[Rfam]
Rfam assigns this 153-nucleotide sequence from Modestobacter caceresii to the family "c-di-AMP riboswitch aptamer (ydaO/yuaA leader)". The match comes from Rfam's covariance-model search (57 bits).
RNA sequence: ACCGGGCAACCGCCGCAACGUCGCCGCGAACGCCCGGACCGGGGACCCACCGCAGUUCUGGGGUGAAGCGCAACGGCACGCGAGUGCCGGAGCGCCGGGCGAGUUCCCCGCCCGAACCCGUCAGCUAACUCGGUAGGCGGUCGAGGAGAACAA
Numbered sequence: 001a002c003c004g005g006g007c008a009a010c011c012g013c014c015g016c017a018a019c020g021u022c023g024c025c026g027c028g029a030a031c032g033c034c035c036g037g038a039c040c041g042g043g044g045a046c047c048c049a050c051c052g053c054a055g056u057u058c059u060g061g062g063g064u065g066a067a068g069c070g071c072a073a074c075g076g077c078a079c080g081c082g083a084g085u086g087c088c089g090g091a092g093c094g095c096c097g098g099g100c101g102a103g104u105u106c107c108c109c110g111c112c113c114g115a116a117c118c119c120g121u122c123a124g125c126u127a128a129c130u131c132g133g134u135a136g137g138c139g140g141u142c143g144a145g146g147a148g149a150a151c152a153a
Base pairs, nucleotide, nucleotide: 011139012138013137014136019036020035038134039133040132041131042130043129048060049059061119062118063117069094070093071092097113098112099111100110